[Rfam]
RNA sequence: UUGGGUAAUGACUGUAAGUCGCUUUGGAUAAAAGCGUCUGCUAAAUGGCAUAUA
Numbered sequence: 001u002u003g004g005g006u007a008a009u010g011a012c013u014g015u016a017a018g019u020c021g022c023u024u025u026g027g028a029u030a031a032a033a034g035c036g037u038c039u040g041c042u043a044a045a046u047g048g049c050a051u052a053u054a
Stems, first nucleotide, its partner, number of pairs: 013043001014041003020036006